Overview:
The family of this 106-nucleotide sequence from Elizabethkingia argenteiflava is "Bacteroidales small SRP". The organism belongs to Elizabethkingia, within Bacteria. A reference for the family is Ryan et al. (2020), "A high-resolution transcriptome map identifies small RNA regulation of metabolism in the gut microbe Bacteroides thetaiotaomicron", Nat Commun. The family is grouped with related families in Rfam's "SRP clan". By type it is a non-coding RNA gene. The base pairs follow the family's consensus structure, which is taken from published work. Gene Ontology terms of the family: signal recognition particle, plasma membrane targeting and SRP-dependent cotranslational protein targeting to membrane, signal sequence recognition.
[Rfam]
RNA sequence: UUUGCAACGGCAAGUCCUACACAACCAGCUCCUGAGAAUCCUCCAGGGCGGGAACGCAGCAAAGGUAAUUGGUCGUAGCGGUGUGAUGUAGAUCGCUUGCCAUUUU
Numbered sequence: 001u002u003u004g005c006a007a008c009g010g011c012a013a014g015u016c017c018u019a020c021a022c023a024a025c026c027a028g029c030u031c032c033u034g035a036g037a038a039u040c041c042u043c044c045a046g047g048g049c050g051g052g053a054a055c056g057c058a059g060c061a062a063a064g065g066u067a068a069u070u071g072g073u074c075g076u077a078g079c080g081g082u083g084u085g086a087u088g089u090a091g092a093u094c095g096c097u098u099g100c101c102a103u104u105u106u
Stems, first nucleotide, its partner, number of pairs: 009101007017091005022085002024082002